Rfam assigns this 65-nucleotide RNA sequence from Callithrix jacchus to the family "Selenocysteine insertion sequence 1". Rfam links the family to the GO term selenocysteine incorporation. A reference for the family is Lambert et al. (2002), "A survey of metazoan selenocysteine insertion sequences", Biochimie. It is annotated as a cis-regulatory element. The base pairs follow the family's consensus structure, which is taken from published work. From the family's description: The incorporation of selenocysteine into a protein sequence is directed by an in-frame UGA codon (usually a stop codon) within the coding region of the mRNA. Selenoprotein mRNAs contain a conserved secondary structure in the 3' UTR that is required for the distinction of UGA stop from UGA selenocysteine.

RNA sequence: CUGGCACCCAUGACGGCCUGCCUGCAAACCAGCUGAUGGUGGGGCAGACCUGAAAACCCGGCGUG
Numbered sequence: 001c002u003g004g005c006a007c008c009c010a011u012g013a014c015g016g017c018c019u020g021c022c023u024g025c026a027a028a029c030c031a032g033c034u035g036a037u038g039g040u041g042g043g044g045c046a047g048a049c050c051u052g053a054a055a056a057c058c059c060g061g062c063g064u065g
Base pairs, nucleotide, nucleotide: 001065004062005061015050016049018047019046020045021044022043023042029039030038031037